[Rfam]
RNA sequence: GGAUUACUCCUUUACGCUUCCGCGAUUGGUUGAUAAAGAUUCUCAUCUCUAUCAAACAGGGUAAUCCCACCUCUUGGCAAGACCCUACUGUCAGAUCAAAUCUGAACUAAUACAACUCAAAUCUAAACUGACAGAUACCUAAAAAAUUGGUAACUGUCAGGUCAGGUGUAAACCAGUACAAACAUACAAACCCAGAUCUAUUCUGAUUCAGUAU
Dot-bracket structure: (((((((.((....(((....)))..((.((((((.((........)).)))))).))))))))))).......(((....(.((....(((((((...))))).))...(..(..........................................).).....))).....))).................(.((((......)).)).)...
The family of this 214-nucleotide RNA from Nitrosomonas sp. Nm84 is "Proteobacterial sRNA psRNA2". Pairs were carried over by alignment from the consensus structure.